[Rfam]
RNA sequence: ACCUGGUUCAAGUAAUCCAGGAUAGGCUGGACCCAUUCUCAUCGGCCUAUUCUCGACUACUUGCACUCGG
Numbered sequence: 001a002c003c004u005g006g007u008u009c010a011a012g013u014a015a016u017c018c019a020g021g022a023u024a025g026g027c028u029g030g031a032c033c034c035a036u037u038c039u040c041a042u043c044g045g046c047c048u049a050u051u052c053u054c055g056a057c058u059a060c061u062u063g064c065a066c067u068c069g070g
Base pairs, nucleotide, nucleotide: 002070003069005067006066007065009063010062011061012060013059014058016056017055019053020052021051022050023049024048025047026046027045028044
RNA: mir-26 microRNA precursor family
Organism: Monodelphis domestica